[Rfam]
RNA: Group II catalytic intron D1-D4-3
RNA sequence: GAAGUCGCGAGGCUUCGUGGGAAGGAAGCCCUAGGCAAAGCCGCGAGACGAUGUACAAGAACGCCAUACAAGGCCCAGCGCCUCGGGCGAGCGUGCCCAGCGACGCGAAGCCCGGAGAAGGUUCGGGGCGCAGGGUAAAUGGCGCGUUUGCGCGGCGGAAGUCGACGUC
Numbered sequence: 001g002a003a004g005u006c007g008c009g010a011g012g013c014u015u016c017g018u019g020g021g022a023a024g025g026a027a028g029c030c031c032u033a034g035g036c037a038a039a040g041c042c043g044c045g046a047g048a049c050g051a052u053g054u055a056c057a058a059g060a061a062c063g064c065c066a067u068a069c070a071a072g073g074c075c076c077a078g079c080g081c082c083u084c085g086g087g088c089g090a091g092c093g094u095g096c097c098c099a100g101c102g103a104c105g106c107g108a109a110g111c112c113c114g115g116a117g118a119a120g121g122u123u124c125g126g127g128g129c130g131c132a133g134g135g136u137a138a139a140u141g142g143c144g145c146g147u148u149u150g151c152g153c154g155g156c157g158g159a160a161g162u163c164g165a166c167g168u169c
Stems, first nucleotide, its partner, number of pairs: 001016006028169001030167001032165001035162002040156006046149005062144006073136003078131006085113004091106004